[Rfam]
RNA sequence: ACAUCACUGGGCGAAGCGAAUGGGCCACGGUUCUGUAAAAGAAACCAGGCUCAGGAAAGUCCCCGGGCCCCUACUAACUGCAGAGAUGCAGGCCUGGAAACAGGUAACCUCCGAGUGCUUGGAGUCUUUAUCGCCUCGUGCGAUGGGCUGAGACACGUGUGGAGCCUUUGGGCUUCAAACCCGGAGUAUAUCUUGGCCGAUUGCACAGUUAUUCGCUUGGUCCUUUGGACUAACUGAACGGGGCUUACGAUCCAGUGGUG
Numbered sequence: 001a002c003a004u005c006a007c008u009g010g011g012c013g014a015a016g017c018g019a020a021u022g023g024g025c026c027a028c029g030g031u032u033c034u035g036u037a038a039a040a041g042a043a044a045c046c047a048g049g050c051u052c053a054g055g056a057a058a059g060u061c062c063c064c065g066g067g068c069c070c071c072u073a074c075u076a077a078c079u080g081c082a083g084a085g086a087u088g089c090a091g092g093c094c095u096g097g098a099a100a101c102a103g104g105u106a107a108c109c110u111c112c113g114a115g116u117g118c119u120u121g122g123a124g125u126c127u128u129u130a131u132c133g134c135c136u137c138g139u140g141c142g143a144u145g146g147g148c149u150g151a152g153a154c155a156c157g158u159g160u161g162g163a164g165c166c167u168u169u170g171g172g173c174u175u176c177a178a179a180c181c182c183g184g185a186g187u188a189u190a191u192c193u194u195g196g197c198c199g200a201u202u203g204c205a206c207a208g209u210u211a212u213u214c215g216c217u218u219g220g221u222c223c224u225u226u227g228g229a230c231u232a233a234c235u236g237a238a239c240g241g242g243g244c245u246u247a248c249g250a251u252c253c254a255g256u257g258g259u260g
Stems, first nucleotide, its partner, number of pairs: 002260010014218006021053006057246003061243004079090004092105005118184002124180002133173004145167004155160001220230004
Dot-bracket structure: .((((((((((..((((((.((((((.....................))))))...[[[.[[[[..............((((....)))).(((((....)))))............((....((.......((((........((((......(....)...))))..)))).....))..))............................)))))).((((...)))).........]]]]]]]....))))))))))
A member of the RNA family "RNase MRP" from Prunus dulcis, 260 nucleotides long. The family's RNA type in Rfam is ribozyme. The family has 66 seed sequences and 3,510 matches in Rfam 15.1.